Rfam assigns this 132-nucleotide RNA from Turnera subulata to the family "small nucleolar RNA snoR127". It is annotated as a C/D-box small nucleolar RNA.

[Rfam]
RNA sequence: CUGGAAUGAUGCAAUUUAGCCAAAUCAUAAAUCGGUGUGCUCCAUGAGGCAAAUCCAUGUCUUUGCAACCCUUGGUCUGGUCGUUGGUUGGUUGCUCAUAGAGGCCCUCUCUCGAACAAACCUCGACCCAGC
Numbered sequence: 001c002u003g004g005a006a007u008g009a010u011g012c013a014a015u016u017u018a019g020c021c022a023a024a025u026c027a028u029a030a031a032u033c034g035g036u037g038u039g040c041u042c043c044a045u046g047a048g049g050c051a052a053a054u055c056c057a058u059g060u061c062u063u064u065g066c067a068a069c070c071c072u073u074g075g076u077c078u079g080g081u082c083g084u085u086g087g088u089u090g091g092u093u094g095c096u097c098a099u100a101g102a103g104g105c106c107c108u109c110u111c112u113c114g115a116a117c118a119a120a121c122c123u124c125g126a127c128c129c130a131g132c
Base pairs, nucleotide, nucleotide: 001131002130003129004128
Lineage of the source: Eukaryota > Euphyllophyta > Spermatophyta > Gunneridae > Turnera. Gene Ontology terms of the family: RNA processing and nucleolus. It scores 44 bits against the family's covariance model.